[Rfam]
Annotation: Shown here is an 83-nucleotide RNA from Pelolinea submarina, a member of the family "c-di-GMP-I riboswitch aptamer". Pairs were carried over by alignment from the consensus structure, which is taken from published work.

RNA sequence: GAUCGAAAAAAGCAAACCCGGUGAAAACCGGCGGCGCAAAGCUAUGGGUCUACCGCUCUGUCCAGGAUUGCCAGGCUGCUGAA
Numbered sequence: 001g002a003u004c005g006a007a008a009a010a011a012g013c014a015a016a017c018c019c020g021g022u023g024a025a026a027a028c029c030g031g032c033g034g035c036g037c038a039a040a041g042c043u044a045u046g047g048g049u050c051u052a053c054c055g056c057u058c059u060g061u062c063c064a065g066g067a068u069u070g071c072c073a074g075g076c077u078g079c080u081g082a083a
Stems, first nucleotide, its partner, number of pairs: 012037002018031005040077004045073003048068003055062001